[Rfam]
RNA sequence: AAUCAAUGAAGAGGUCGCACACUUCAUCAGUACGUGCUGUUAGGUUAUUAAGGACCGGAGCAGGAUUGAAAAGGGGAGUUGUGCCGAAACGACUACCAGCUUAAUCUGGUGGCCGUUGGGCUGGGGUUGAAUAAGCCACAGACUGUCGCAUUAUCAGCGGAGCGCUUCCUUAAAA
Number, nucleotide and partner (000 for none) at each position: 001a000002a000003u000004c000005a000006a170007u000008g168009a167010a166011g165012a000013g000014g000015u000016c000017g084018c083019a082020c081021a080022c078023u077024u076025c075026a000027u000028c000029a000030g000031u000032a000033c000034g066035u065036g000037c063038u062039g061040u060041u000042a000043g000044g000045u000046u000047a000048u000049u000050a000051a000052g000053g000054a000055c000056c000057g000058g000059a000060g040061c039062a038063g037064g000065a035066u034067u000068g000069a000070a000071a000072a000073g000074g000075g025076g024077a023078g022079u000080u021081g020082u019083g018084c017085c000086g000087a000088a117089a116090c115091g114092a000093c112094u111095a110096c109097c108098a107099g106100c000101u000102u000103a000104a000105u000106c099107u098108g097109g096110u095111g094112g093113c000114c091115g090116u089117u088118g144119g143120g000121c141122u140123g139124g000125g137126g136127u135128u134129g000130a000131a000132u000133a000134a128135g127136c126137c125138a000139c123140a122141g121142a000143c119144u118145g000146u160147c159148g158149c157150a000151u000152u000153a000154u000155c000156a000157g149158c148159g147160g146161a000162g000163c000164g000165c011166u010167u009168c008169c000170u006171u000172a000173a000174a000175a000
Shown here is a 175-nucleotide RNA sequence from Limosilactobacillus frumenti, a member of the family "Lysine riboswitch aptamer".
Rfam links the family to the GO term lysine biosynthetic process.
Rfam describes the family as follows. Riboswitches are metabolite binding domains within certain messenger RNAs that serve as precision sensors for their corresponding targets. Allosteric rearrangement of mRNA structure is mediated by ligand binding, and this results in modulation of gene expression. This family includes riboswitches that sense lysine in a number of genes involved in lysine metabolism, including lysC.
A reference for the family is Mandal et al. (2003), "Riboswitches Control Fundamental Biochemical Pathways in Bacillus subtilis and Other Bacteria", Cell.
The organism belongs to Limosilactobacillus frumenti, within Bacteria.
Pairs were carried over by alignment from the consensus structure, which is taken from published work.